[Rfam]
RNA sequence: ACUCCCUGGCAAUGGGCAGUGGGCACCUGGUUGGUGGUGUUGUUCUUACAUCAGUCAGGGGCAGAGCAGAUGGCCGGCCUUGGUUCAUCCUAGCUUGAUGCCUGGCUUGGUGGCCAAAGAUGUUUCAUGCCUAGGGCACAUGC
Numbered sequence: 001a002c003u004c005c006c007u008g009g010c011a012a013u014g015g016g017c018a019g020u021g022g023g024c025a026c027c028u029g030g031u032u033g034g035u036g037g038u039g040u041u042g043u044u045c046u047u048a049c050a051u052c053a054g055u056c057a058g059g060g061g062c063a064g065a066g067c068a069g070a071u072g073g074c075c076g077g078c079c080u081u082g083g084u085u086c087a088u089c090c091u092a093g094c095u096u097g098a099u100g101c102c103u104g105g106c107u108u109g110g111u112g113g114c115c116a117a118a119g120a121u122g123u124u125u126c127a128u129g130c131c132u133a134g135g136g137c138a139c140a141u142g143c
Stems, first nucleotide, its partner, number of pairs: 003061006013053003019047001021045001022041006083137004097131001099129001103127003108122002111119001